[Rfam]
RNA sequence: GGAGUAAAUCAGACAAUCGCGGCUAUGUACGAGGAAAGUCCGUGCACUAUAGAGCAGGAUGCUUGAUAACGUCAAGUAGGAGUAAUCUUCAGGCAAGUGCAACAGAAAGUAUACCGCCAGCAAUAGUUGGUAAGGUUGGAAUGGCGAGGUAAGAGCUCACCAGCUAUAUGGUGACAUAUAGGCUAUGUAAACCCCAUCCAGUGCAAGAACGAAGGGAUGAUAAACAAAGUUUGCUCGGCUUUGAUCCAGAAUGGUUGUUCGCUUGAGCUUAUUGGCGACAGUAAGUCUAGAUAGAUGAUUGUCUAAUACAGAACACGGCUUAUAGAUUUGCUCCUUAC
Numbered sequence: 001g002g003a004g005u006a007a008a009u010c011a012g013a014c015a016a017u018c019g020c021g022g023c024u025a026u027g028u029a030c031g032a033g034g035a036a037a038g039u040c041c042g043u044g045c046a047c048u049a050u051a052g053a054g055c056a057g058g059a060u061g062c063u064u065g066a067u068a069a070c071g072u073c074a075a076g077u078a079g080g081a082g083u084a085a086u087c088u089u090c091a092g093g094c095a096a097g098u099g100c101a102a103c104a105g106a107a108a109g110u111a112u113a114c115c116g117c118c119a120g121c122a123a124u125a126g127u128u129g130g131u132a133a134g135g136u137u138g139g140a141a142u143g144g145c146g147a148g149g150u151a152a153g154a155g156c157u158c159a160c161c162a163g164c165u166a167u168a169u170g171g172u173g174a175c176a177u178a179u180a181g182g183c184u185a186u187g188u189a190a191a192c193c194c195c196a197u198c199c200a201g202u203g204c205a206a207g208a209a210c211g212a213a214g215g216g217a218u219g220a221u222a223a224a225c226a227a228a229g230u231u232u233g234c235u236c237g238g239c240u241u242u243g244a245u246c247c248a249g250a251a252u253g254g255u256u257g258u259u260c261g262c263u264u265g266a267g268c269u270u271a272u273u274g275g276c277g278a279c280a281g282u283a284a285g286u287c288u289a290g291a292u293a294g295a296u297g298a299u300u301g302u303c304u305a306a307u308a309c310a311g312a313a314c315a316c317g318g319c320u321u322a323u324a325g326a327u328u329u330g331c332u333c334c335u336u337a338c
Stems, first nucleotide, its partner, number of pairs: 001334010011323001012303007020031002036321003040318005045203004052236004057199005062076005077091001078089004092194002097192002099188003114135002116131006143161002146158003163183001164181007207260004218250001219246003227241005267286008
A member of the RNA family "Bacterial RNase P class A" from Anaerococcus nagyae, 338 nucleotides long.